[Rfam]
RNA: Streptomyces-metK RNA
RNA sequence: GCGAGAACAGGUGGCCCUGCGGCCAGGUGCGACCGAUAAACUGUUCGCGGACGACGUUGGGCGCAGCUCCCGACGUGGUCCUUCAAUGAUCAGCCAGCAGCCGCUGCAACCCCAGGGAG
Dot-bracket structure: ................................................((((.(..(((((.......)))))..).)))).............((((....)))).............